[Rfam]
RNA sequence: CCGAACAACACAACCACAGAUCUGUGGCCAGCACUCCUGUUCACGGUGGGCUUGUCUCGCUGUGUUUCGGUCGAGAGCUGGUCAGUUCGACGAUGAACGGAGCCAUGAAUUUACGUGUGUGGUCUUUCAGUUUCCGGUCGACGGAUCUCAGAUUAAAGGUCUUCGCUGGGUGUGACUCGGGCCUUGAGCUCCUCUCUGAGUGAGCUCGGCUGGAGAGCCUGGUUUGCGGACGGCGUCAUAUUCCUGAUCCCUUUGCCGAUUGGCCGUUGGCUGAUGAGGUUAGGGAAAAACCAUGACUUGCCAACAUCC
Numbered sequence: 001c002c003g004a005a006c007a008a009c010a011c012a013a014c015c016a017c018a019g020a021u022c023u024g025u026g027g028c029c030a031g032c033a034c035u036c037c038u039g040u041u042c043a044c045g046g047u048g049g050g051c052u053u054g055u056c057u058c059g060c061u062g063u064g065u066u067u068c069g070g071u072c073g074a075g076a077g078c079u080g081g082u083c084a085g086u087u088c089g090a091c092g093a094u095g096a097a098c099g100g101a102g103c104c105a106u107g108a109a110u111u112u113a114c115g116u117g118u119g120u121g122g123u124c125u126u127u128c129a130g131u132u133u134c135c136g137g138u139c140g141a142c143g144g145a146u147c148u149c150a151g152a153u154u155a156a157a158g159g160u161c162u163u164c165g166c167u168g169g170g171u172g173u174g175a176c177u178c179g180g181g182c183c184u185u186g187a188g189c190u191c192c193u194c195u196c197u198g199a200g201u202g203a204g205c206u207c208g209g210c211u212g213g214a215g216a217g218c219c220u221g222g223u224u225u226g227c228g229g230a231c232g233g234c235g236u237c238a239u240a241u242u243c244c245u246g247a248u249c250c251c252u253u254u255g256c257c258g259a260u261u262g263g264c265c266g267u268u269g270g271c272u273g274a275u276g277a278g279g280u281u282a283g284g285g286a287a288a289a290a291c292c293a294u295g296a297c298u299u300g301c302c303a304a305c306a307u308c309c
Stems, first nucleotide, its partner, number of pairs: 018148008026083006034075003037070003042064009091140004099128002102123003159227002165223006180211004186207006192200002232302003235297005248286005255280003262272004
Rfam assigns this 309-nucleotide RNA from Penicillium capsulatum to the family "A. fumigatus sRNA Afu_309". The base pairs follow the family's consensus structure, which was predicted with WAR. A search with the family's covariance model found it, with a score of 246 bits. The organism belongs to Penicillium, within Eukaryota. By type it is a small RNA. On this family, see Jochl et al., Nucleic Acids Res 2008: "Small ncRNA transcriptome analysis from Aspergillus fumigatus suggests a novel mechanism for regulation of protein synthesis".